[Rfam]
Shown here is a 57-nucleotide sequence from Carex littledalei, a member of the family "Rubella virus 3' cis-acting element". The match comes from Rfam's covariance-model search (37 bits). The source organism's lineage runs through Eukaryota, Viridiplantae, Tracheophyta, Petrosaviidae and Carex subgen. Euthyceras. The family's RNA type in Rfam is cis-regulatory element. From the family's description: This family represents a cis-acting element found at the 3' UTR in the rubella virus. This family contains three conserved step loop structures. Rfam links the family to the GO term viral genome replication. The family's consensus secondary structure is taken from published work.
RNA sequence: CGCUAUAGCGGCGCUAUAGCGCCGCUAUAGCGCGCUAUUUAGAACACUGAUUAUAUU
Numbered sequence: 001c002g003c004u005a006u007a008g009c010g011g012c013g014c015u016a017u018a019g020c021g022c023c024g025c026u027a028u029a030g031c032g033c034g035c036u037a038u039u040u041a042g043a044a045c046a047c048u049g050a051u052u053a054u055a056u057u
Base pairs, nucleotide, nucleotide: 001032002031003030004029006027007026008025009024010023011022012021013020014019033049034048036046